Record summary:
The record is a 91-nucleotide RNA sequence from Thalassotalea sp. PP2-459, which matches "c-di-GMP-I riboswitch aptamer" in Rfam. The family's consensus secondary structure is taken from published work. From the family's description: GEMM was predicted in a large-scale screen for bacterial structured RNA regulatory elements.
[Rfam]
RNA sequence: ACAAAGAAAAGGCAAAACAUGCGAAAACAUGUUACGCAAAACCACCGGUCUAAGGAUAAUUUAAUUUAUCUAUGACAGCGGAGUUACCGAG
Numbered sequence: 001a002c003a004a005a006g007a008a009a010a011g012g013c014a015a016a017a018c019a020u021g022c023g024a025a026a027a028c029a030u031g032u033u034a035c036g037c038a039a040a041a042c043c044a045c046c047g048g049u050c051u052a053a054g055g056a057u058a059a060u061u062u063a064a065u066u067u068a069u070c071u072a073u074g075a076c077a078g079c080g081g082a083g084u085u086a087c088c089g090a091g
Base pairs, nucleotide, nucleotide: 012037013036017032018031019030020029021028040085041084042083045081046080047079048076049075050074055070056069057068058067
The match comes from Rfam's covariance-model search (76 bits).